The family of this 369-nucleotide RNA sequence from Mycolicibacterium aurum is "transfer-messenger RNA". Taxonomically the source falls in Mycobacterium (subgen. Mycolicibacterium) (Bacteria, Actinomycetota, Actinomycetes, Mycobacteriales). Rfam classes the family as a non-coding RNA gene. About the family: Bacterial tmRNA, also known as 10Sa RNA or SsrA, is named for its dual tRNA and mRNA-like properties. Its role is to liberate the mRNA from a stalled ribosome. To accomplish this part of the tmRNA is used as a reading frame that ends in a translation stop signal. The broken mRNA is replaced in the ribosome by the tmRNA and translation of the tmRNA leads to addition of a proteolysis tag to the incomplete protein enabling recognition by a protease. The family's consensus secondary structure is taken from published work. The match comes from Rfam's covariance-model search (141 bits). The family is grouped with related families in Rfam's "tRNA clan".
RNA sequence: GGGGCUGAACGGUUUCGACUUCGCGCAUCGAAUCAAGGGAAGCGUGCCGGUGCAGGCAAUUGACCACCGUAAGCGUCGUUGCAACCAAUUAAGCGCCGAUUCCAAUCAGCGCGACUUCGCCCUCGCUGCUUAAGCGACGGUGAGUCUGUCAGACCGGGAGCGCCCUCGGCCCGGACCCUGGCAUCAGCUAGAGGGAACCACCGAUUCACCCGGUCGCGGGGAGUCUCGGGACAUCAAACAGCGACUGGGAUCGUCAUCCUGACUUGUUCGUGUGAUCAGGAGAUCCGAGUAGAGACAUAGCGAACUGCGCACGGAGAAGCCUCGAGGGAAUGCCGUAGGACCCGGGUUCGAUUCCCGGCAGCUCCACCG
Number, nucleotide and partner (000 for none) at each position: 001g365002g364003g363004g362005c361006u360007g359008a000009a000010c000011g000012g000013u000014u000015u000016c000017g000018a000019c338020u337021u000022c335023g334024c000025g333026c332027a331028u330029c000030g000031a000032a000033u325034c324035a000036a322037g321038g320039g000040a000041a000042g000043c313044g312045u311046g310047c309048c069049g068050g067051u066052g065053c000054a000055g000056g082057c081058a080059a079060u078061u000062g000063a000064c000065c052066a051067c050068c049069g048070u000071a000072a000073g000074c000075g000076u000077c000078g060079u059080u058081g057082c056083a000084a000085c000086c000087a000088a000089u000090u000091a000092a000093g000094c000095g000096c000097c000098g000099a000100u000101u000102c000103c000104a000105a000106u000107c000108a000109g000110c000111g000112c000113g000114a000115c000116u000117u000118c000119g000120c000121c000122c144123u143124c142125g141126c140127u139128g138129c000130u000131u000132a000133a000134g000135c000136g000137a000138c128139g127140g126141u125142g124143a123144g122145u000146c000147u183148g182149u181150c180151a179152g178153a000154c174155c173156g172157g171158g170159a000160g000161c000162g000163c195164c194165c193166u192167c191168g000169g000170c158171c157172c156173g155174g154175a000176c000177c000178c152179u151180g150181g149182c148183a147184u000185c000186a000187g000188c000189u000190a000191g167192a166193g165194g164195g163196a000197a000198c000199c000200a000201c229202c228203g227204a226205u000206u000207c223208a000209c221210c000211c000212g246213g245214u244215c243216g242217c241218g000219g000220g000221g209222a000223g207224u000225c000226u204227c203228g202229g201230g000231a000232c000233a000234u000235c000236a000237a000238a000239c000240a000241g217242c216243g215244a214245c213246u212247g000248g286249g285250a284251u283252c282253g000254u281255c280256a000257u278258c000259c000260u000261g000262a000263c274264u000265u000266g305267u304268u303269c302270g000271u000272g000273u000274g263275a000276u000277c000278a257279g000280g255281a254282g252283a251284u250285c249286c248287g000288a000289g000290u000291a000292g000293a000294g000295a000296c000297a000298u000299a000300g000301c000302g269303a268304a267305c266306u000307g000308c000309g047310c046311a045312c044313g043314g000315a000316g000317a000318a000319g000320c038321c037322u036323c000324g034325a033326g000327g000328g000329a000330a028331u027332g026333c025334c023335g022336u000337a020338g019339g000340a000341c000342c358343c357344g356345g355346g354347u000348u000349c000350g000351a000352u000353u000354c346355c345356c344357g343358g342359c007360a006361g005362c004363u003364c002365c001366a000367c000368c000369g000